[Rfam]
RNA sequence: ACCCUUUGGUUCCCCUGCCGUCAGUUGUGAAUGCUGGCCUUGGUGGUCAUAAAAGGAGGGAAAGUGAUACUGAAGCUGGCCUCACAGCACUGCAGUCUGACAUACAGCAUGCUGGCUAUGUCCAAAUGGAA
Numbered sequence: 001a002c003c004c005u006u007u008g009g010u011u012c013c014c015c016u017g018c019c020g021u022c023a024g025u026u027g028u029g030a031a032u033g034c035u036g037g038c039c040u041u042g043g044u045g046g047u048c049a050u051a052a053a054a055g056g057a058g059g060g061a062a063a064g065u066g067a068u069a070c071u072g073a074a075g076c077u078g079g080c081c082u083c084a085c086a087g088c089a090c091u092g093c094a095g096u097c098u099g100a101c102a103u104a105c106a107g108c109a110u111g112c113u114g115g116c117u118a119u120g121u122c123c124a125a126a127u128g129g130a131a
Stems, first nucleotide, its partner, number of pairs: 003059005018046005024039001026037001077118005091109003
This 131-nucleotide sequence from Castor canadensis belongs to the Rfam family "Small nucleolar RNA SNORA61". Rfam classes the family as an H/ACA-box small nucleolar RNA. Rfam describes the family as follows. ACA61 is a member of the H/ACA class of snoRNA that guide the sites of modification of uridines to pseudouridines. The base pairs follow the family's consensus structure, which was predicted with PFOLD.